[Rfam]
Small nucleolar RNA snoR138: a 136-nucleotide sequence from Digitaria exilis. The family has 7 seed sequences and 308 matches in Rfam 15.1.
RNA sequence: UGUGCCUCUUGAAUAACCAAUUGCUGUGAUUAGUAUACUUGCAUUUGGUUCAGACAGAGGCACAUAACAAAUGGGAUCUUUUGAGGGAAGGGAUAUUGUUCUUUGUUCAUCCCUUCUUAGUUUGAUUCGAACAGUA
Numbered sequence: 001u002g003u004g005c006c007u008c009u010u011g012a013a014u015a016a017c018c019a020a021u022u023g024c025u026g027u028g029a030u031u032a033g034u035a036u037a038c039u040u041g042c043a044u045u046u047g048g049u050u051c052a053g054a055c056a057g058a059g060g061c062a063c064a065u066a067a068c069a070a071a072u073g074g075g076a077u078c079u080u081u082u083g084a085g086g087g088a089a090g091g092g093a094u095a096u097u098g099u100u101c102u103u104u105g106u107u108c109a110u111c112c113c114u115u116c117u118u119a120g121u122u123u124g125a126u127u128c129g130a131a132c133a134g135u136a
Stems, first nucleotide, its partner, number of pairs: 003062005009057001015050006022043001024041001026039001074128005082109003086106001089103005
The literature on the family includes a 2009 paper in Nucleic Acids Res by Chen and Wu, "Mining small RNA sequencing data: a new approach to identify small nucleolar RNAs in Arabidopsis".